[Rfam]
RNA sequence: CUCCACACCCGUCGUGACACAAUAUCCUGCUGCGAUAUUGUGUGACCUGCAGUGUCAGACGGCAUGUGGGG
Numbered sequence: 001c002u003c004c005a006c007a008c009c010c011g012u013c014g015u016g017a018c019a020c021a022a023u024a025u026c027c028u029g030c031u032g033c034g035a036u037a038u039u040g041u042g043u044g045a046c047c048u049g050c051a052g053u054g055u056c057a058g059a060c061g062g063c064a065u066g067u068g069g070g071g
Stems, first nucleotide, its partner, number of pairs: 001071007009062005021039006044056003

Shown here is a 71-nucleotide RNA sequence from Domatiomyces globalis, a member of the family "bZIP non canonical Hac1/Xbp1 intron". Rfam 15.1 lists 1,325 matches to the family in 1,320 species. By type it is a small RNA. About the family: bZIP intron RNA is a non-canonical intron that was first reported in HAC1 gene in yeast and XBP1 gene in Metazoa.